This 75-nucleotide sequence from Malus domestica belongs to the Rfam family "Plastid-ycf2 5UTR RNA". By type it is a cis-regulatory element. The family's consensus secondary structure was predicted with LocARNA. The source organism's lineage runs through Eukaryota, Embryophyta, Gunneridae, Amygdaloideae and Malus. It scores 85 bits against the family's covariance model. On this family, see Richter et al., Plant Commun 2023: "Retrograde signaling in plants: A critical review focusing on the GUN pathway and beyond". Rfam's curators write: Plastid ycf2 is a non-coding RNA (ncRNA) recognised in plastids. It was found in the prime untranslated region (5UTR) of ycf2 genes, it presents a tRNA-like motif which suggests it can be involved in mRNA maturation, particularly involved in defining the precise 5' end of the transcript. The family has 204 seed sequences and 3,521 matches in Rfam 15.1.
[Rfam]
RNA sequence: AUGCAUCUAGUAGGAAUUGAACCUACAAAAUCGCAAAUUAUGAGUUGGGCGCUUUAACCAUCCAGCAAUGGAUGC
Number, nucleotide and partner (000 for none) at each position: 001a000002u000003g075004c074005a073006u072007c071008u070009a000010g026011u025012a024013g023014g022015a000016a000017u000018u000019g000020a000021a000022c014023c013024u012025a011026c010027a000028a000029a000030a000031u000032c000033g000034c000035a000036a000037a000038u000039u000040a069041u068042g000043a000044g066045u065046u064047g063048g062049g061050c000051g059052c000053u000054u000055u000056a000057a000058c000059c051060a000061u049062c048063c047064a046065g045066c044067a000068a041069u040070g008071g007072a006073u005074g004075c003